RNA: Prion pseudoknot
Organism: Otus sunia
RNA sequence: GCACGGUGGUGGCUGGGACCAGCCCCGUGGAGGGGAGGAAGG
Numbered sequence: 001g002c003a004c005g006g007u008g009g010u011g012g013c014u015g016g017g018a019c020c021a022g023c024c025c026c027g028u029g030g031a032g033g034g035g036a037g038g039a040a041g042g
Stems, first nucleotide, its partner, number of pairs: 002029005